[Rfam]
RNA sequence: CGAAGGGAGUCGAUGCCGCGCCGGGGCCGCGCGCCGCAGCUGCAAGACGCCAUCCGGCGCCGCCAGGCAACUGGCAGCAGCGGGCGCGCGCCCGGCCUGCGGGUCCGCGUCGGCUCGCGGCGCAGGAGCGGCUGCUGGCAAGGUAGCCGGCCCGGUCGCCGGGUCUGGCGCUAUAGGCCAGCGGAGCCGGCUGUGCGGCGGGCCGGGGCGACGCCUCGGCAACGGGGCGCGACGCGGGCGCCAUGGCUCUCUCCGACCCGUCUUGAAACACGG
Numbered sequence: 001c002g003a004a005g006g007g008a009g010u011c012g013a014u015g016c017c018g019c020g021c022c023g024g025g026g027c028c029g030c031g032c033g034c035c036g037c038a039g040c041u042g043c044a045a046g047a048c049g050c051c052a053u054c055c056g057g058c059g060c061c062g063c064c065a066g067g068c069a070a071c072u073g074g075c076a077g078c079a080g081c082g083g084g085c086g087c088g089c090g091c092c093c094g095g096c097c098u099g100c101g102g103g104u105c106c107g108c109g110u111c112g113g114c115u116c117g118c119g120g121c122g123c124a125g126g127a128g129c130g131g132c133u134g135c136u137g138g139c140a141a142g143g144u145a146g147c148c149g150g151c152c153c154g155g156u157c158g159c160c161g162g163g164u165c166u167g168g169c170g171c172u173a174u175a176g177g178c179c180a181g182c183g184g185a186g187c188c189g190g191c192u193g194u195g196c197g198g199c200g201g202g203c204c205g206g207g208g209c210g211a212c213g214c215c216u217c218g219g220c221a222a223c224g225g226g227g228c229g230c231g232a233c234g235c236g237g238g239c240g241c242c243a244u245g246g247c248u249c250u251c252u253c254c255g256a257c258c259c260g261u262c263u264u265g266a267a268a269c270a271c272g273g
Base pairs, nucleotide, nucleotide: 001255002254004252005251006250007249008248009247010246011245012244017101020100021099023097024096105237106236107235108234109233110232111231258273259272260271261270
RNA: Eukaryotic large subunit ribosomal RNA, nucleotides 423 to 695
Organism: Cyanidioschyzon merolae